[Rfam]
RNA sequence: CAAAACGCAACGAACGGGAACAGUAACCGGCAACCUAUCUCAGAGAGCUGCGGCAUGGUGCAACGCAGUAUAGGUACAAGGUGAAGCUCACCCGGGAGCGGCCAGACUGAUCGUCCUGCGCGCAGCGCUGCACGCUUUAUUUCAGGGGACAGCAGGUUUGGACGGUUCGCCACCGUGAUCAGGCUUUGAGCGGACAUUGUUAUCGCCUCCGGCGAUUUUAAGCAAUGUCAACAAGAGUGGUACCGCGAUAGGAACAGCCUGUCGUCUCUUAU
Number, nucleotide and partner (000 for none) at each position: 001c000002a000003a000004a000005a000006c000007g099008c098009a000010a000011c000012g000013a000014a000015c094016g093017g092018g091019a000020a000021c000022a000023g000024u000025a000026a082027c081028c080029g000030g000031c000032a000033a000034c000035c000036u072037a071038u070039c000040u000041c000042a000043g000044a000045g000046a000047g069048c068049u067050g066051c065052g064053g000054c000055a000056u000057g000058g000059u000060g000061c000062a000063a000064c052065g051066c050067a049068g048069u047070a038071u037072a036073g000074g000075u000076a000077c000078a000079a000080g028081g027082u026083g000084a000085a000086g000087c000088u000089c000090a000091c018092c017093c016094g015095g000096g000097a000098g008099c007100g000101g000102c161103c160104a159105g158106a157107c156108u155109g000110a000111u000112c000113g000114u000115c000116c000117u000118g000119c000120g000121c000122g000123c000124a000125g000126c000127g000128c000129u000130g000131c000132a000133c000134g000135c000136u000137u000138u000139a000140u000141u000142u000143c000144a000145g000146g000147g000148g000149a000150c000151a000152g000153c000154a000155g108156g107157u106158u105159u104160g103161g102162a000163c175164g174165g173166u000167u000168c000169g000170c000171c000172a000173c165174c164175g163176u000177g000178a000179u000180c000181a000182g000183g000184c000185u000186u000187u000188g000189a000190g000191c000192g000193g229194a228195c227196a226197u225198u224199g223200u222201u221202a000203u000204c000205g000206c000207c000208u000209c000210c000211g000212g000213c000214g000215a000216u000217u000218u000219u000220a000221a201222g200223c199224a198225a197226u196227g195228u194229c193230a000231a000232c000233a000234a269235g268236a267237g266238u000239g000240g000241u000242a000243c000244c000245g265246c264247g263248a262249u261250a260251g259252g258253a000254a000255c000256a000257g000258c252259c251260u250261g249262u248263c247264g246265u245266c237267u236268c235269u234270u000271a000272u000
A member of the RNA family "T-box leader" from Paenibacillus sp. UNCCL117, 272 nucleotides long. Taxonomically the source falls in Paenibacillus (Bacteria, Bacillati, Caryophanales, Paenibacillaceae). It is annotated as a cis-regulatory leader. Gene Ontology term of the family: tRNA binding.